[Rfam]
RNA: mir-166 microRNA precursor family
RNA sequence: GUUGAGGGGAAUGCUGUCUGGUUCAAAAGCACCCAUAUUUUGAUCAGAUUCAGAAGCCUCAAGCACUGAUAUAACGUGAUCAAUCGAAAGAUAUAGUCUAUUGAUUAUUCUGGGUUUAUAUUUAUGCUUUUGGACCAGGCUUCAUUCCCCUUAAU
Numbered sequence: 001g002u003u004g005a006g007g008g009g010a011a012u013g014c015u016g017u018c019u020g021g022u023u024c025a026a027a028a029g030c031a032c033c034c035a036u037a038u039u040u041u042g043a044u045c046a047g048a049u050u051c052a053g054a055a056g057c058c059u060c061a062a063g064c065a066c067u068g069a070u071a072u073a074a075c076g077u078g079a080u081c082a083a084u085c086g087a088a089a090g091a092u093a094u095a096g097u098c099u100a101u102u103g104a105u106u107a108u109u110c111u112g113g114g115u116u117u118a119u120a121u122u123u124a125u126g127c128u129u130u131u132g133g134a135c136c137a138g139g140c141u142u143c144a145u146u147c148c149c150c151u152u153a154a155u
Stems, first nucleotide, its partner, number of pairs: 001155013016140006024132008